[Rfam]
RNA sequence: CACACGAAAAGGCAAACCCAGGGUAACCUGGGGACGCAAAGCCACCUGUCCAGCAUUCUGGAAAGAGGGGUUGUCGAA
Numbered sequence: 001c002a003c004a005c006g007a008a009a010a011g012g013c014a015a016a017c018c019c020a021g022g023g024u025a026a027c028c029u030g031g032g033g034a035c036g037c038a039a040a041g042c043c044a045c046c047u048g049u050c051c052a053g054c055a056u057u058c059u060g061g062a063a064a065g066a067g068g069g070g071u072u073g074u075c076g077a078a
Stems, first nucleotide, its partner, number of pairs: 012037002017032006040072004045068003049062005
Rfam assigns this 78-nucleotide sequence from Citrifermentans bemidjiense to the family "c-di-GMP-I riboswitch aptamer". Pairs were carried over by alignment from the consensus structure, which is taken from published work. Lineage of the source: Bacteria > Pseudomonadati > Thermodesulfobacteriota > Geobacteraceae > Citrifermentans bemidjiense. GEMM was predicted in a large-scale screen for bacterial structured RNA regulatory elements. Genes associated with GEMM are involved in a diverse array of functions, including chemotaxis regulation, signal transduction, secretion and chitin.